[Rfam]
RNA sequence: GGCCUGAUAGUUCAGUGGUAGAAUUCUUGCUUUGGGAGCUCAGGCAUUCAAAUUGUAAGAGGUCUCCGGUUCAAUCCCGGAUUAGGCCC
Numbered sequence: 001g002g003c004c005u006g007a008u009a010g011u012u013c014a015g016u017g018g019u020a021g022a023a024u025u026c027u028u029g030c031u032u033u034g035g036g037a038g039c040u041c042a043g044g045c046a047u048u049c050a051a052a053u054u055g056u057a058a059g060a061g062g063u064c065u066c067c068g069g070u071u072c073a074a075u076c077c078c079g080g081a082u083u084a085g086g087c088c089c
Stems, first nucleotide, its partner, number of pairs: 001088007010024004026059005065081005
tRNA: an 89-nucleotide RNA from Pseudogymnoascus sp. VKM F-4281. Rfam's curators write: Transfer RNA (tRNA) molecules are approximately 80 nucleotides in length. Their secondary structure includes four short double-helical elements and three loops (D, anti-codon, and T loops). Further hydrogen bonds mediate the characteristic L-shaped molecular structure. tRNAs have two regions of fundamental functional importance: the anti-codon, which is responsible for specific mRNA codon recognition, and the 3' end, to which the tRNAs corresponding amino acid is attached (by aminoacyl-tRNA synthetases). tRNAs cope with the degeneracy of the genetic code in two manners: having more than one tRNA (with a specific anti-codon) for a particular amino acid; and 'wobble' base-pairing, i.e. permitting non-standard base-pairing at the 3rd anti-codon position. Rfam classes the family as a transfer RNA. NCBI's taxonomy places the organism under Eukaryota, Dikarya, Leotiomycetes, Thelebolales, Pseudogymnoascus. The family's consensus secondary structure is taken from published work.